[Rfam]
Rfam assigns this 196-nucleotide RNA sequence from Gossypium aridum to the family "MIR159 microRNA precursor family".
Gene Ontology terms of the family: miRNA-mediated post-transcriptional gene silencing and RISC complex.
On this family, see Jones-Rhoades and Bartel, Mol Cell 2004: "Computational identification of plant microRNAs and their targets, including a stress-induced miRNA".
Taxonomically the source falls in Gossypium (Eukaryota, Streptophytina, Euphyllophyta, eudicotyledons).
Rfam 15.1 lists 3,649 matches to the family in 242 species.
RNA sequence: AAGGUUUAGACGGGGCUCUCUGAACUCCAAACCUAAAGGGAAAUGACGGUAGGCUACGGCUGCUAGUUCAUGGAUGCCCUUGGAUGCGGAAAAAUGGGCUUGAGGGGUUCGCAGCUGAGGGUUUGCAUGAACUAGGAGACGUUGUUGCCUUCAUCUUUUUGGUAUUGGAGUGAAGGGAGCUCCGUUUUCUACUUUC
Numbered sequence: 001a002a003g004g005u006u007u008a009g010a011c012g013g014g015g016c017u018c019u020c021u022g023a024a025c026u027c028c029a030a031a032c033c034u035a036a037a038g039g040g041a042a043a044u045g046a047c048g049g050u051a052g053g054c055u056a057c058g059g060c061u062g063c064u065a066g067u068u069c070a071u072g073g074a075u076g077c078c079c080u081u082g083g084a085u086g087c088g089g090a091a092a093a094a095u096g097g098g099c100u101u102g103a104g105g106g107g108u109u110c111g112c113a114g115c116u117g118a119g120g121g122u123u124u125g126c127a128u129g130a131a132c133u134a135g136g137a138g139a140c141g142u143u144g145u146u147g148c149c150u151u152c153a154u155c156u157u158u159u160u161g162g163u164a165u166u167g168g169a170g171u172g173a174a175g176g177g178a179g180c181u182c183c184g185u186u187u188u189c190u191a192c193u194u195u196c
Stems, first nucleotide, its partner, number of pairs: 013182008024171006036159001060138002063135003069129004077121001